[Rfam]
Shown here is a 72-nucleotide RNA, a member of the family "Flavo-1 RNA".

RNA sequence: GUCUAGCCCAGAUUGAAAUGACAUCCUUUUUUCUUUUUCAGAAAAAAGAUAUAAUGGAAAGCUGGAAAAAGC
Numbered sequence: 001g002u003c004u005a006g007c008c009c010a011g012a013u014u015g016a017a018a019u020g021a022c023a024u025c026c027u028u029u030u031u032u033c034u035u036u037u038u039c040a041g042a043a044a045a046a047a048g049a050u051a052u053a054a055u056g057g058a059a060a061g062c063u064g065g066a067a068a069a070a071g072c
Stems, first nucleotide, its partner, number of pairs: 009064003013060002018055002023050003029045005
It is annotated as a small RNA.